[Rfam]
RNA: tRNA
RNA sequence: GCGGUUGUGAUGGAAUGGCAGACAUGCGGGUCUUAAAAACCCGUGAAGCGUCAGCUUCGGUUGUGGGUUCAAGUCCAACCGGCCGCA
Numbered sequence: 001g002c003g004g005u006u007g008u009g010a011u012g013g014a015a016u017g018g019c020a021g022a023c024a025u026g027c028g029g030g031u032c033u034u035a036a037a038a039a040c041c042c043g044u045g046a047a048g049c050g051u052c053a054g055c056u057u058c059g060g061u062u063g064u065g066g067g068u069u070c071a072a073g074u075c076c077a078a079c080c081g082g083c084c085g086c087a
Stems, first nucleotide, its partner, number of pairs: 001086007010025003027043005063079002066076002